[Rfam]
RNA sequence: UCUAAUCUUCGGGGCAGGGUGUAAUUCCCGACCGGCGGUAUAGUCCGCGACCUGUUAUACUACCGUAUAAUGGCUGAUCUGGUGAAAUUCCAGGACCGACAGUUAAAGUCUGGAUGAGAGAAGAUGUCG
Numbered sequence: 001u002c003u004a005a006u007c008u009u010c011g012g013g014g015c016a017g018g019g020u021g022u023a024a025u026u027c028c029c030g031a032c033c034g035g036c037g038g039u040a041u042a043g044u045c046c047g048c049g050a051c052c053u054g055u056u057a058u059a060c061u062a063c064c065g066u067a068u069a070a071u072g073g074c075u076g077a078u079c080u081g082g083u084g085a086a087a088u089u090c091c092a093g094g095a096c097c098g099a100c101a102g103u104u105a106a107a108g109u110c111u112g113g114a115u116g117a118g119a120g121a122a123g124a125u126g127u128c129g
Stems, first nucleotide, its partner, number of pairs: 005125006017029003031109002033098002035048004043096002052073002078094005100112003

The record is a 129-nucleotide RNA sequence from Oceanobacillus piezotolerans, which matches "FMN riboswitch aptamer (RFN element)" in Rfam. Rfam 15.1 lists 6,230 matches to the family in 5,120 species. Gene Ontology term of the family: FMN binding. Lineage of the source: Bacteria > Bacillota > Caryophanales > Bacillaceae > Oceanobacillus. The family's consensus secondary structure is taken from published work. The match comes from Rfam's covariance-model search (116 bits).